A member of the RNA family "Small nucleolar RNA SNORD18" from Manacus vitellinus, 71 nucleotides long. The family's RNA type in Rfam is C/D-box small nucleolar RNA. Clan: SNORD18 clan. A search with the family's covariance model found it, with a score of 75 bits.
[Rfam]
RNA sequence: CUGAAAUGAUGAGAUUCCACUUCAUUGGUCCGUGUUUCUGAAACACAUGAUUGUGUGGAAGUUCUGAUUGG
Numbered sequence: 001c002u003g004a005a006a007u008g009a010u011g012a013g014a015u016u017c018c019a020c021u022u023c024a025u026u027g028g029u030c031c032g033u034g035u036u037u038c039u040g041a042a043a044c045a046c047a048u049g050a051u052u053g054u055g056u057g058g059a060a061g062u063u064c065u066g067a068u069u070g071g
Base pairs, nucleotide, nucleotide: 001071002070003069004068